[Rfam]
Nucleotides: 100
Base pairs, nucleotide, nucleotide: 007056008055009054010053011052012051015046016045020043021042022040023037024036025035026034027033058073059072060071061070062069063068075095077098081093082092083091
Number, partner (000 for none) and nucleotide at each position: 001000c002000a003000a004000a005000a006000a007056g008055u009054u010053u011052u012051c013000u014000a015046g016045g017000g018000u019000u020043c021042c022040g023037c024036a025035a026034u027033c028000a029000u030000a031000u032000c033027g034026g035025u036024u037023g038000g039000c040022c041000u042021g043020g044000u045016c046015c047000g048000a049000g050000a051012g052011a053010a054009a055008a056007c057000u058073c059072a060071c061070a062069g063068c064000a065000a066000u067000u068063g069062c070061u071060g072059u073058g074000c075095c076000a077098c078000g079000g080000a081093a082092g083091g084000a085000u086000a087000a088000a089000a090000g091083c092082c093081u094000g095075g096000g097000a098077g099000a100000u
A member of the RNA family "Guanidine-I riboswitch aptamer" from Bacillus sp. FJAT-27916, 100 nucleotides long. The family has 100 seed sequences and 1,509 matches in Rfam 15.1. The pairing is the family consensus, mapped onto this sequence.